A member of the RNA family "Plastid-psbA-1 3UTR RNA" from Musa balbisiana, 111 nucleotides long.
Clan: Plastid-psbA 3UTR RNA clan.
From the family's description: Plastid psbA-1 is a non-coding RNA (ncRNA) present in plastids. It was identified in inverted repeat sequences in the 3 prime untranslate region (3UTR) of photosystem II quinone-binding protein (psbA).
A search with the family's covariance model found it, with a score of 81 bits.
Rfam classes the family as a cis-regulatory element.
On this family, see Richter et al., Plant Commun 2023: "Retrograde signaling in plants: A critical review focusing on the GUN pathway and beyond".
[Rfam]
RNA sequence: UCGAAGUUUCAUCUCAAAAUGGAUACGAUUUGUCUAGUGUAUACGAAUCGUUGAAACAAAGUAGCAAUACCCCAUGUCUUGCUUUAGCCCAGACAUGGGGUAUGCUACUUU
Numbered sequence: 001u002c003g004a005a006g007u008u009u010c011a012u013c014u015c016a017a018a019a020u021g022g023a024u025a026c027g028a029u030u031u032g033u034c035u036a037g038u039g040u041a042u043a044c045g046a047a048u049c050g051u052u053g054a055a056a057c058a059a060a061g062u063a064g065c066a067a068u069a070c071c072c073c074a075u076g077u078c079u080u081g082c083u084u085u086a087g088c089c090c091a092g093a094c095a096u097g098g099g100g101u102a103u104g105c106u107a108c109u110u111u
Stems, first nucleotide, its partner, number of pairs: 008023005058111009068102003072098003076094004
Dot-bracket structure: .......(((((......)))))..................................(((((((((.(((.(((.((((...........)))).))).))))))))))))